The record is a 109-nucleotide RNA from Halobacillus halophilus, which matches "SAM riboswitch aptamer (S box leader)" in Rfam. NCBI's taxonomy places the organism under Bacteria, Bacilli, Caryophanales, Bacillaceae, Halobacillus halophilus. The SAM riboswitch is found upstream of a number of genes which code for proteins involved in methionine or cysteine biosynthesis in Gram-positive bacteria.
[Rfam]
RNA sequence: CACUUAUCCAGAGAGGCGGAGGGACUGGCCCUUUGAUGCCCGGCAACCGGUUCAUGCAAAUGAAUACGGUGCUAAUUCCUGCAAAGUACUUUACUUUGGUAGAUGAGAA
Numbered sequence: 001c002a003c004u005u006a007u008c009c010a011g012a013g014a015g016g017c018g019g020a021g022g023g024a025c026u027g028g029c030c031c032u033u034u035g036a037u038g039c040c041c042g043g044c045a046a047c048c049g050g051u052u053c054a055u056g057c058a059a060a061u062g063a064a065u066a067c068g069g070u071g072c073u074a075a076u077u078c079c080u081g082c083a084a085a086g087u088a089c090u091u092u093a094c095u096u097u098g099g100u101a102g103a104u105g106a107g108a109a
Stems, first nucleotide, its partner, number of pairs: 003107006013041001015040003021031003025081001027079002042073004047069002050065004077101001082098006